Shown here is a 53-nucleotide RNA sequence from Paramixta manurensis, a member of the family "ClpQY promoter". Lineage of the source: Bacteria > Pseudomonadati > Pseudomonadota > Erwiniaceae > Paramixta. Its family is annotated with mRNA stabilization in the Gene Ontology. The base pairs follow the family's consensus structure. For this family Rfam cites "Regulation of clpQ(+)Y(+) (hslV(+)U(+)) gene expression in Escherichia coli" (Lien et al., Open Microbiol J, 2009).

RNA sequence: CUCCGCGCCUGCCGCGGAGCCCUCUUCCCACUGCAACAAGGGGUCUGCCCGUG
Numbered sequence: 001c002u003c004c005g006c007g008c009c010u011g012c013c014g015c016g017g018a019g020c021c022c023u024c025u026u027c028c029c030a031c032u033g034c035a036a037c038a039a040g041g042g043g044u045c046u047g048c049c050c051g052u053g
Stems, first nucleotide, its partner, number of pairs: 001019007